Shown here is a 184-nucleotide sequence from Kouleothrix aurantiaca, a member of the family "SAM riboswitch aptamer (S box leader)". From the family's description: The SAM riboswitch is found upstream of a number of genes which code for proteins involved in methionine or cysteine biosynthesis in Gram-positive bacteria. The SAM riboswitch acts at the level of transcription termination control. The predicted structure consists of a complex stem-loop region followed by a single stem loop terminator region. An alternative and mutually exclusive form involves bases in the 3' segment of helix 1 with those in the 5' region of helix 5 to form a structure termed the anti-terminator form. The family's consensus secondary structure is taken from published work. Taxonomically the source falls in Kouleothrix (Bacteria, Chloroflexota, Chloroflexales, Roseiflexaceae).

[Rfam]
RNA sequence: UGCUCAUCAUGAGGGGCGGAGGGACUGGCCCGACGAAGCCCGGCAACCCCCACCGAUUUAUGAUUAGCGAUUUUGGAUUUACGAUCAGGCUCUUUGCAGCCAAUCGUCAAUCGCCAAUCGUCAAUCGUAAAUGGCGGGAAGGUGCCAAUUCCUGCAGGCGCAUUGUGCGCCUGAGAGAUGAGAG
Numbered sequence: 001u002g003c004u005c006a007u008c009a010u011g012a013g014g015g016g017c018g019g020a021g022g023g024a025c026u027g028g029c030c031c032g033a034c035g036a037a038g039c040c041c042g043g044c045a046a047c048c049c050c051c052a053c054c055g056a057u058u059u060a061u062g063a064u065u066a067g068c069g070a071u072u073u074u075g076g077a078u079u080u081a082c083g084a085u086c087a088g089g090c091u092c093u094u095u096g097c098a099g100c101c102a103a104u105c106g107u108c109a110a111u112c113g114c115c116a117a118u119c120g121u122c123a124a125u126c127g128u129a130a131a132u133g134g135c136g137g138g139a140a141g142g143u144g145c146c147a148a149u150u151c152c153u154g155c156a157g158g159c160g161c162a163u164u165g166u167g168c169g170c171c172u173g174a175g176a177g178a179u180g181a182g183a184g
Stems, first nucleotide, its partner, number of pairs: 001184001003182006013041001015040003021031003025154001027152002042146004047142002049138003150176001155173006